[Rfam]
A member of the RNA family "FMN riboswitch aptamer (RFN element)" from Shouchella lonarensis, 149 nucleotides long. From the family's description: The RFN element is a highly conserved domain that is found frequently in the 5'-untranslated regions of prokaryotic mRNAs that encode for flavin mononucleotide (FMN) biosynthesis and transport proteins. This element is a metabolite-dependent riboswitch that directly binds FMN in the absence of proteins. In Bacillus subtilis, the riboswitch most likely controls gene expression by causing premature transcription termination within the 5' untranslated region of the ribDEAHT operon and precluding access to the ribosome-binding site of ypaA mRNA.The FMN riboswitch structure, reported in present an FMN-bound six-stem junction, adopts a butterfly-like scaffold, stapled together by opposingly directed but nearly identically folded peripheral domains. NCBI's taxonomy places the organism under Bacteria, Bacillati, Bacillota, Caryophanales, Shouchella. The base pairs follow the family's consensus structure, which is taken from published work.
RNA sequence: AAAUAACUUCGGGGCAGGGUGAAAUUCCCUACCGGCGGUGAUGAGGGAGUGUCCCUCUCAGUCCGUGACCCGUGCUUGCUUCACGCAAGCCGGUGGAUCUGGUGUAACUCCAGAGCCGACAGUGAGAGUCUGGAUGGGAGAAGUUGUGA
Numbered sequence: 001a002a003a004u005a006a007c008u009u010c011g012g013g014g015c016a017g018g019g020u021g022a023a024a025u026u027c028c029c030u031a032c033c034g035g036c037g038g039u040g041a042u043g044a045g046g047g048a049g050u051g052u053c054c055c056u057c058u059c060a061g062u063c064c065g066u067g068a069c070c071c072g073u074g075c076u077u078g079c080u081u082c083a084c085g086c087a088a089g090c091c092g093g094u095g096g097a098u099c100u101g102g103u104g105u106a107a108c109u110c111c112a113g114a115g116c117c118g119a120c121a122g123u124g125a126g127a128g129u130c131u132g133g134a135u136g137g138g139a140g141a142a143g144u145u146g147u148g149a
Stems, first nucleotide, its partner, number of pairs: 003147008017029003031129002033118002035066004061116002070093002098114005120132003